[Rfam]
U7 small nuclear RNA: a 55-nucleotide RNA from Anabarilius grahami.
Pairs were carried over by alignment from the consensus structure, which was predicted with PFOLD.
It scores 50 bits against the family's covariance model.
The literature on the family includes a 1994 paper in Nucleic Acids Res by Spycher et al., "3' end processing of mouse histone pre-mRNA: evidence for additional base-pairing between U7 snRNA and pre-mRNA".
NCBI's taxonomy places the organism under Eukaryota, Metazoa, Eumetazoa, Deuterostomia, Anabarilius.
RNA sequence: UGAAAUUGGCUCUUUUAGUAUUUGUCCAGUAGGUUUUCUAUAACAGAAAGCCCCU
Numbered sequence: 001u002g003a004a005a006u007u008g009g010c011u012c013u014u015u016u017a018g019u020a021u022u023u024g025u026c027c028a029g030u031a032g033g034u035u036u037u038c039u040a041u042a043a044c045a046g047a048a049a050g051c052c053c054c055u
Stems, first nucleotide, its partner, number of pairs: 032052008